Rfam assigns this 103-nucleotide sequence from Oceanobacillus profundus to the family "TPP riboswitch aptamer (THI element)". Rfam's curators write: Vitamin B(1) in its active form thiamin pyrophosphate (TPP) is an essential coenzyme that is synthesised by coupling of pyrimidine and thiazole moieties in bacteria.

[Rfam]
RNA sequence: AAAAUCCACUAGGGGUGCCAUUUGGCUGAGAUAAGAUUCAUUUCUUGAUCCCUUUGAACCUGAACUGGCUAGUACCAGCGUAGGGAAGUGGAGCUGGUGACGU
Numbered sequence: 001a002a003a004a005u006c007c008a009c010u011a012g013g014g015g016u017g018c019c020a021u022u023u024g025g026c027u028g029a030g031a032u033a034a035g036a037u038u039c040a041u042u043u044c045u046u047g048a049u050c051c052c053u054u055u056g057a058a059c060c061u062g063a064a065c066u067g068g069c070u071a072g073u074a075c076c077a078g079c080g081u082a083g084g085g086a087a088g089u090g091g092a093g094c095u096g097g098u099g100a101c102g103u
Base pairs, nucleotide, nucleotide: 006091007090008089009088010087011053012052013051014050016047017026018025019024033046034045035044036043059084060083061082062081065078066077067076068075